[Rfam]
RNA sequence: AACGAUGUUGCGACAGUAAUUUAAGUUAGUACGAGAGGAACCCUUAAAUCAGAUAAUUGGUAAAUACGGUUGUCUGAAAAGACAAUGCCGUGAAGCUACCAUCUGUUGGAUUAUGACUGAAGGCCUCUAAGUCAGAAUCCAUGCUGGAAAGCAAUGUCUAAGUGUGAUGAUAAACGAAAAAAAAUAAGAAAUUAAGUUCGAAAGGUAGAGCGGAGAAGAGCGAAAAAGCUUGAUCUUAACUGCUAAUCGUAAUUCCAAAUUAUCAUCUACGUAAAUCUUUUGUAGACGACUUAAUACGGAACGGGUAUUGUAAGUAUGAGAGUAGAAUAUUCUACGAUCUGCUGAGAUUCAGCCCGUCUCCUUAGAUUUAU
Numbered sequence: 001a002a003c004g005a006u007g008u009u010g011c012g013a014c015a016g017u018a019a020u021u022u023a024a025g026u027u028a029g030u031a032c033g034a035g036a037g038g039a040a041c042c043c044u045u046a047a048a049u050c051a052g053a054u055a056a057u058u059g060g061u062a063a064a065u066a067c068g069g070u071u072g073u074c075u076g077a078a079a080a081g082a083c084a085a086u087g088c089c090g091u092g093a094a095g096c097u098a099c100c101a102u103c104u105g106u107u108g109g110a111u112u113a114u115g116a117c118u119g120a121a122g123g124c125c126u127c128u129a130a131g132u133c134a135g136a137a138u139c140c141a142u143g144c145u146g147g148a149a150a151g152c153a154a155u156g157u158c159u160a161a162g163u164g165u166g167a168u169g170a171u172a173a174a175c176g177a178a179a180a181a182a183a184a185u186a187a188g189a190a191a192u193u194a195a196g197u198u199c200g201a202a203a204g205g206u207a208g209a210g211c212g213g214a215g216a217a218g219a220g221c222g223a224a225a226a227a228g229c230u231u232g233a234u235c236u237u238a239a240c241u242g243c244u245a246a247u248c249g250u251a252a253u254u255c256c257a258a259a260u261u262a263u264c265a266u267c268u269a270c271g272u273a274a275a276u277c278u279u280u281u282g283u284a285g286a287c288g289a290c291u292u293a294a295u296a297c298g299g300a301a302c303g304g305g306u307a308u309u310g311u312a313a314g315u316a317u318g319a320g321a322g323u324a325g326a327a328u329a330u331u332c333u334a335c336g337a338u339c340u341g342c343u344g345a346g347a348u349u350c351a352g353c354c355c356g357u358c359u360c361c362u363u364a365g366a367u368u369u370a371u
Stems, first nucleotide, its partner, number of pairs: 004158008014146004019049007050105005058098003065092005070085006107141003114134005166267005273369005278294002282290001298361003303355003307348002314342003319338001322335005
RNA: Eukaryotic large subunit ribosomal RNA, nucleotides 2970 to 3340